[Rfam]
About this RNA
SAM riboswitch aptamer (S box leader): a 137-nucleotide RNA sequence from Thermus thermophilus. NCBI's taxonomy places the organism under Bacteria, Deinococcota, Deinococci, Thermus, Thermus thermophilus. From the family's description: The SAM riboswitch is found upstream of a number of genes which code for proteins involved in methionine or cysteine biosynthesis in Gram-positive bacteria.

RNA sequence: CUCUUAUCCAGAGCGGUGGAGGGUACGGCCCUGUGAAGCCGCGGCAACCUCCCGCCCCUUCCGUUCCAUGGCCGGAUGCGGGCGGGGCUGGUGCCAACGCCGGCCCGGGCGGGGGAAACGCCCGGGGACGAUAAGAG
Numbered sequence: 001c002u003c004u005u006a007u008c009c010a011g012a013g014c015g016g017u018g019g020a021g022g023g024u025a026c027g028g029c030c031c032u033g034u035g036a037a038g039c040c041g042c043g044g045c046a047a048c049c050u051c052c053c054g055c056c057c058c059u060u061c062c063g064u065u066c067c068a069u070g071g072c073c074g075g076a077u078g079c080g081g082g083c084g085g086g087g088c089u090g091g092u093g094c095c096a097a098c099g100c101c102g103g104c105c106c107g108g109g110c111g112g113g114g115g116a117a118a119c120g121c122c123c124g125g126g127g128a129c130g131a132u133a134a135g136a137g
Stems, first nucleotide, its partner, number of pairs: 001137008013042005021031003026102003043095004048091002050087008099129001104126008